This 52-nucleotide RNA from Paracoccus isoporae belongs to the Rfam family "serC leader".
RNA sequence: CCUUGGGACACCCCUCCCCAACGAGGGGCUUUUGCCUGGAAGGGUAACAUCA
Numbered sequence: 001c002c003u004u005g006g007g008a009c010a011c012c013c014c015u016c017c018c019c020a021a022c023g024a025g026g027g028g029c030u031u032u033u034g035c036c037u038g039g040a041a042g043g044g045u046a047a048c049a050u051c052a
Stems, first nucleotide, its partner, number of pairs: 011028006032047006

About the family: This family is a putative regulatory RNA structure that is found upstream of the serC-serA operon in some alpha-proteobacteria. The final stem of the structure overlaps the ribosome binding site of the serC reading frame. Pairs were carried over by alignment from the consensus structure. For this family Rfam cites "Evidence for a second class of S-adenosylmethionine riboswitches and other regulatory RNA motifs in alpha-proteobacteria" (Corbino et al., Genome Biol, 2005).